[Rfam]
Rfam assigns this 151-nucleotide RNA sequence from Cavia porcellus to the family "Human acetyl-coA cholesterol acyltransferase mRNA". NCBI's taxonomy places the organism under Eukaryota, Metazoa, Amniota, Rodentia, Cavia. The base pairs follow the family's consensus structure, which is taken from published work. For this family Rfam cites "RNA secondary structures located in the interchromosomal region of human ACAT1 chimeric mRNA are required to produce the 56-kDa isoform" (Chen et al., Cell Res, 2008).
RNA sequence: UUGAAGAGAGGUUGGCGUUGCGGGCGCAGGGCGACGGGACAUCUUCCCGGGACCGACCUGUGUGCUGGUCCCGGAUUGACGGGUUUCCGACUCGUGUCUCUUGAUGGAGGCUCCCGGAGCCCGGCGGGCUUGGGCCUCAGUAUUAACAGAA
Number, nucleotide and partner (000 for none) at each position: 001u000002u000003g000004a000005a000006g000007a000008g000009a000010g000011g000012u000013u017014g000015g000016c000017g013018u000019u000020g000021c000022g000023g000024g000025c000026g000027c000028a000029g000030g000031g000032c000033g000034a000035c089036g000037g087038g086039a085040c000041a084042u083043c082044u000045u079046c078047c000048c073049g072050g071051g070052a000053c000054c000055g000056a000057c068058c067059u000060g000061u000062g000063u000064g000065c000066u000067g058068g057069u000070c051071c050072c049073g048074g000075a000076u000077u000078g046079a045080c000081g000082g043083g042084u041085u039086u038087c037088c000089g035090a000091c000092u000093c000094g000095u000096g000097u000098c000099u000100c000101u000102u000103g136104a000105u134106g000107g000108a000109g000110g131111c000112u000113c128114c127115c126116g125117g000118a000119g000120c000121c000122c000123g000124g000125c116126g115127g114128g113129c000130u000131u110132g000133g000134g105135c000136c103137u000138c000139a000140g000141u000142a000143u000144u000145a000146a000147c000148a000149g000150a000151a000